Nitrogen stress-induced RNA 1: a 57-nucleotide RNA sequence from Microcoleus vaginatus. Rfam 15.1 lists 962 matches to the family in 163 species. NCBI's taxonomy places the organism under Bacteria, Bacillati, Oscillatoriophycideae, Microcoleaceae, Microcoleus vaginatus. By type it is a small RNA. It is one of the family's seed sequences.
RNA sequence: UGGUAGAUGCACCCUGAUUAAUUAACUCCCGACCAAUUUUGGUUCGGGGUUUUUUUU
Numbered sequence: 001u002g003g004u005a006g007a008u009g010c011a012c013c014c015u016g017a018u019u020a021a022u023u024a025a026c027u028c029c030c031g032a033c034c035a036a037u038u039u040u041g042g043u044u045c046g047g048g049g050u051u052u053u054u055u056u057u
Stems, first nucleotide, its partner, number of pairs: 002013003027049006033042003
On this family, see Ionescu et al., J Mol Biol 2010: "Heterocyst-specific transcription of NsiR1, a non-coding RNA encoded in a tandem array of direct repeats in cyanobacteria".